This 132-nucleotide RNA sequence from Firmicutes bacterium CAG:114 belongs to the Rfam family "FMN riboswitch aptamer (RFN element)". The source organism's lineage runs through Bacteria, Bacillati and Bacillota.
RNA sequence: AGAUGUCUUCAGGGCGGGGUGAAAGUCCCCACCGGCGGUAAAGUCCGCGAGCCCCUUGGCCACAGGCCCAGGAGAGCCGACCCGGUGCAAUUCCGGGACCGACAGUGACAGUCUGGAUGGGAGAAGACGUGC
Dot-bracket structure: ..((((((((......(((.......))).[[((((((....[[))))..((.......................))...(((((.......)))))]])).(((.....]]))).......))))))))..
The match comes from Rfam's covariance-model search (114 bits).